[Rfam]
RNA sequence: CCGCUAUCCGCCCAUCGGUUUGGCCGAAAAACGGAAGGUAUUCCUGCAUCGUAACGAGUGAAGCACUCGAAUAGGUGAAGCG
Numbered sequence: 001c002c003g004c005u006a007u008c009c010g011c012c013c014a015u016c017g018g019u020u021u022g023g024c025c026g027a028a029a030a031a032c033g034g035a036a037g038g039u040a041u042u043c044c045u046g047c048a049u050c051g052u053a054a055c056g057a058g059u060g061a062a063g064c065a066c067u068c069g070a071a072u073a074g075g076u077g078a079a080g081c082g
Stems, first nucleotide, its partner, number of pairs: 002082003007035004016026004037044002047077004055069006